[Rfam]
RNA: Group II catalytic intron D1-D4-1
Organism: Mycobacterium intermedium
RNA sequence: CGGCGUCGUUCGUGAGGGCGGCGCUGACGGGGCAGAAGUCAGCAGAGGCCGUAGUACCGGCGGGAAUCAGAUGUGCCGGGAAGGGC
Numbered sequence: 001c002g003g004c005g006u007c008g009u010u011c012g013u014g015a016g017g018g019c020g021g022c023g024c025u026g027a028c029g030g031g032g033c034a035g036a037a038g039u040c041a042g043c044a045g046a047g048g049c050c051g052u053a054g055u056a057c058c059g060g061c062g063g064g065a066a067u068c069a070g071a072u073g074u075g076c077c078g079g080g081a082a083g084g085g086c
Base pairs, nucleotide, nucleotide: 001026002025004023005022006021007020008019009018010017011016039046040045048086049085050084057079058078059077060076061075062074